Shown here is a 78-nucleotide RNA from Geobacter pickeringii, a member of the family "c-di-GMP-I-GGC riboswitch aptamer". Pairs were carried over by alignment from the consensus structure, which is taken from published work. NCBI's taxonomy places the organism under Bacteria, Thermodesulfobacteriota, Desulfuromonadia, Geobacteraceae, Geobacter. The literature on the family includes a 2017 paper in Proc Natl Acad Sci U S A by Weinberg et al., "Bioinformatic analysis of riboswitch structures uncovers variant classes with altered ligand specificity".
[Rfam]
RNA sequence: CGAGACAAAGCCAAAACCUGCGUGAGCAGGUGACGGAAAGCCGCGGGUCUUCACCGAGAGACAGCCGGGCCGCCAAAG
Numbered sequence: 001c002g003a004g005a006c007a008a009a010g011c012c013a014a015a016a017c018c019u020g021c022g023u024g025a026g027c028a029g030g031u032g033a034c035g036g037a038a039a040g041c042c043g044c045g046g047g048u049c050u051u052c053a054c055c056g057a058g059a060g061a062c063a064g065c066c067g068g069g070c071c072g073c074c075a076a077a078g
Base pairs, nucleotide, nucleotide: 001078004074011036012035016031017030018029019028020027021026034064040070041069042068044067045066046065047062048061049060